[Rfam]
RNA: Small nucleolar RNA SNORA81
Organism: Neolamprologus brichardi
RNA sequence: CCCUUCUGCAUCAACAGAGGUCUGCUAUAAUUGUGUGAUCCAGAUUUUCUGUUUCAUGCAAUGAUGAUAGCAGAUUUUUACGUGGAAGGAGAUUAUUUUGCACUUGGCUGAAAAUGAGAUGUGGUCGAACCUCUUUCUUAAUGUUCGUUGGCUGCAAUCUCAAGGUCAAGUGCCACAAUU
Numbered sequence: 001c002c003c004u005u006c007u008g009c010a011u012c013a014a015c016a017g018a019g020g021u022c023u024g025c026u027a028u029a030a031u032u033g034u035g036u037g038a039u040c041c042a043g044a045u046u047u048u049c050u051g052u053u054u055c056a057u058g059c060a061a062u063g064a065u066g067a068u069a070g071c072a073g074a075u076u077u078u079u080a081c082g083u084g085g086a087a088g089g090a091g092a093u094u095a096u097u098u099u100g101c102a103c104u105u106g107g108c109u110g111a112a113a114a115u116g117a118g119a120u121g122u123g124g125u126c127g128a129a130c131c132u133c134u135u136u137c138u139u140a141a142u143g144u145u146c147g148u149u150g151g152c153u154g155c156a157a158u159c160u161c162a163a164g165g166u167c168a169a170g171u172g173c174c175a176c177a178a179u180u
Base pairs, nucleotide, nucleotide: 020075021074023072024071025070026069027068030065031064032063033062036056037055041051042050043049100173101172102171103170104169105168106167107166122151124149126147127146128145129144